Rfam assigns this 78-nucleotide RNA from Jaculus jaculus to the family "mir-3473 microRNA precursor family". A search with the family's covariance model found it, with a score of 75 bits. Gene Ontology terms of the family: cellular response to mechanical stimulus, miRNA-mediated post-transcriptional gene silencing and RISC complex. Lineage of the source: Eukaryota > Teleostomi > Euteleostomi > Mammalia > Jaculus.
RNA sequence: ACUGCUGAGCCAUCUCUCCAGGCCCUCAAAUACAUUUUUUAAAUUACAUUUAAAGGGCUGGAGAGAUGGCUCAGCAAU
Numbered sequence: 001a002c003u004g005c006u007g008a009g010c011c012a013u014c015u016c017u018c019c020a021g022g023c024c025c026u027c028a029a030a031u032a033c034a035u036u037u038u039u040u041a042a043a044u045u046a047c048a049u050u051u052a053a054a055g056g057g058c059u060g061g062a063g064a065g066a067u068g069g070c071u072c073a074g075c076a077a078u
Stems, first nucleotide, its partner, number of pairs: 003076019023056002